Notes: Shown here is a 300-nucleotide RNA from Nezara viridula, a member of the family "Metazoan signal recognition particle RNA". The match comes from Rfam's covariance-model search (248 bits). It is annotated as a non-coding RNA gene. Taxonomically the source falls in Nezara (Eukaryota, Panarthropoda, Arthropoda, Heteroptera).

[Rfam]
RNA sequence: ACUGGGAGGUUUGGCAGCCUCCUGUAAUCCAGCUACCUGGAGGUCGGGAACUGUGGAUGAGUUGAGGACGGGAGUCACUGGAGCGAGGUGUGCCCACGUCGACCAGGCGUCCGCACUAAGCUGACCAUCAACAUGGUCGCCCUGUGGUAGCACGGGGCGACCAGGUUCGCUAAAGAGGGGCGCACCGGGCCAGGGGGGUAACCCAGCAGCCAAAAGUCCCCGUGGUCAGCAGUAGUGGGAUCGCGCCCGUGAGUGGGACCCUCGCUUCAGCCUGGCCGAUAGAUUCGGACCGGUCUCUUU
Numbered sequence: 001a002c003u004g005g006g007a008g009g010u011u012u013g014g015c016a017g018c019c020u021c022c023u024g025u026a027a028u029c030c031a032g033c034u035a036c037c038u039g040g041a042g043g044u045c046g047g048g049a050a051c052u053g054u055g056g057a058u059g060a061g062u063u064g065a066g067g068a069c070g071g072g073a074g075u076c077a078c079u080g081g082a083g084c085g086a087g088g089u090g091u092g093c094c095c096a097c098g099u100c101g102a103c104c105a106g107g108c109g110u111c112c113g114c115a116c117u118a119a120g121c122u123g124a125c126c127a128u129c130a131a132c133a134u135g136g137u138c139g140c141c142c143u144g145u146g147g148u149a150g151c152a153c154g155g156g157g158c159g160a161c162c163a164g165g166u167u168c169g170c171u172a173a174a175g176a177g178g179g180g181c182g183c184a185c186c187g188g189g190c191c192a193g194g195g196g197g198g199u200a201a202c203c204c205a206g207c208a209g210c211c212a213a214a215a216g217u218c219c220c221c222g223u224g225g226u227c228a229g230c231a232g233u234a235g236u237g238g239g240a241u242c243g244c245g246c247c248c249g250u251g252a253g254u255g256g257g258a259c260c261c262u263c264g265c266u267u268c269a270g271c272c273u274g275g276c277c278g279a280u281a282g283a284u285u286c287g288g289a290c291c292g293g294u295c296u297c298u299u300u
Stems, first nucleotide, its partner, number of pairs: 001044003004023008028041003046298003050294004058287006066277002069274004078270008087262002090259002093257005099251001104249001106247005111239002114237005120230009130167003134163013177220005188211003195204003